RNA sequence: AUUGCACAUAAAAACCCAAAGAAUAUUGUUCUCAAUAAUGAUAUUCUUGUCAUGUGUGCAAAUAUUAAAUGCAUCUUGUCGCCUUUCAAAAGCUGAAGUGCUGUUGAAAGUGAAAUUUAAGAUUCUACAUUA
Numbered sequence: 001a002u003u004g005c006a007c008a009u010a011a012a013a014a015c016c017c018a019a020a021g022a023a024u025a026u027u028g029u030u031c032u033c034a035a036u037a038a039u040g041a042u043a044u045u046c047u048u049g050u051c052a053u054g055u056g057u058g059c060a061a062a063u064a065u066u067a068a069a070u071g072c073a074u075c076u077u078g079u080c081g082c083c084u085u086u087c088a089a090a091a092g093c094u095g096a097a098g099u100g101c102u103g104u105u106g107a108a109a110g111u112g113a114a115a116u117u118u119a120a121g122a123u124u125c126u127a128c129a130u131u132a
Stems, first nucleotide, its partner, number of pairs: 002061008021046010071125001073123005083110007091102003
This 132-nucleotide sequence from Junco hyemalis belongs to the Rfam family "Small nucleolar RNA SNORA68". The source organism's lineage runs through Eukaryota, Eumetazoa, Coelurosauria, Passerellidae and Junco. Rfam classes the family as an H/ACA-box small nucleolar RNA. It scores 105 bits against the family's covariance model.